Small nucleolar RNA SNORD58: a 68-nucleotide RNA from Chrysolophus pictus.
RNA sequence: CUGCGGUGAUGACUGUCUUAGGACACCUUUGAAUUGAGUUGUGAAAAGAAAUGUGACCUCUGAGCAGC
Numbered sequence: 001c002u003g004c005g006g007u008g009a010u011g012a013c014u015g016u017c018u019u020a021g022g023a024c025a026c027c028u029u030u031g032a033a034u035u036g037a038g039u040u041g042u043g044a045a046a047a048g049a050a051a052u053g054u055g056a057c058c059u060c061u062g063a064g065c066a067g068c
Stems, first nucleotide, its partner, number of pairs: 001067004

snoRNA U58 is found in introns 1, 3 and 6 of the ribosomal protein RPL17 gene in humans. A search with the family's covariance model found it, with a score of 66 bits. A reference for the family is Galardi et al. (2002), "Purified box C/D snoRNPs are able to reproduce site-specific 2'-O-methylation of target RNA in vitro", Mol Cell Biol. Pairs were carried over by alignment from the consensus structure, which was predicted with PFOLD. Its Rfam clan is "SNORD58 clan".